[Rfam]
RNA sequence: AACUCAUCCAGAGGGGCAGAGGGACACGGCCCGGUGAAGCCCCGGCAACCAUCGCAUCACUCGCUACGGCGAGGCGGGUGCGACAGGUGCCACUUCCGUCCCGGUGAAUCCGGGAGAGAUGAGGC
Numbered sequence: 001a002a003c004u005c006a007u008c009c010a011g012a013g014g015g016g017c018a019g020a021g022g023g024a025c026a027c028g029g030c031c032c033g034g035u036g037a038a039g040c041c042c043c044g045g046c047a048a049c050c051a052u053c054g055c056a057u058c059a060c061u062c063g064c065u066a067c068g069g070c071g072a073g074g075c076g077g078g079u080g081c082g083a084c085a086g087g088u089g090c091c092a093c094u095u096c097c098g099u100c101c102c103g104g105u106g107a108a109u110c111c112g113g114g115a116g117a118g119a120u121g122a123g124g125c
Stems, first nucleotide, its partner, number of pairs: 003123006013043005021032003026099004044091004049087002052083007095117001100114005
RNA: SAM riboswitch aptamer (S box leader)
Organism: Cryptosporangium phraense